[Rfam]
This 86-nucleotide RNA from Chinchilla lanigera belongs to the Rfam family "Stem loopII regulatory element in POLB". Rfam classes the family as a cis-regulatory element.
RNA sequence: AGCCCAUUAGAAGUCUUAAUUUAUUUCCUAACCUUUGCUGUGUAAGGGUGUUUGGUGUUUUUAACUGAUUGUUUCUCCUUCGUGCU
Numbered sequence: 001a002g003c004c005c006a007u008u009a010g011a012a013g014u015c016u017u018a019a020u021u022u023a024u025u026u027c028c029u030a031a032c033c034u035u036u037g038c039u040g041u042g043u044a045a046g047g048g049u050g051u052u053u054g055g056u057g058u059u060u061u062u063a064a065c066u067g068a069u070u071g072u073u074u075c076u077c078c079u080u081c082g083u084g085c086u
Stems, first nucleotide, its partner, number of pairs: 009079002012076001016064004025055002031049008

Annotation:
The match comes from Rfam's covariance-model search (99 bits).